[Rfam]
RNA sequence: UAAGAAUAGUAGGGGAACCGGAUAAGCCGGUUGAGAGUGCGUCCUUAUUUGAUGCUAACCCUUUGAACCUGAUCUGGUUAAUACCGGCGGAGGGAACAUAUUCUAGACAAUCA
Numbered sequence: 001u002a003a004g005a006a007u008a009g010u011a012g013g014g015g016a017a018c019c020g021g022a023u024a025a026g027c028c029g030g031u032u033g034a035g036a037g038u039g040c041g042u043c044c045u046u047a048u049u050u051g052a053u054g055c056u057a058a059c060c061c062u063u064u065g066a067a068c069c070u071g072a073u074c075u076g077g078u079u080a081a082u083a084c085c086g087g088c089g090g091a092g093g094g095a096a097c098a099u100a101u102u103c104u105a106g107a108c109a110a111u112c113a
Stems, first nucleotide, its partner, number of pairs: 006101003009097002011062004016056001017031005039055004068093003074087004
A member of the RNA family "TPP riboswitch aptamer (THI element)" from Niallia endozanthoxylica, 113 nucleotides long. NCBI's taxonomy places the organism under Bacteria, Bacillota, Bacilli, Caryophanales, Niallia. The match comes from Rfam's covariance-model search (70 bits). The family's consensus secondary structure is taken from published work.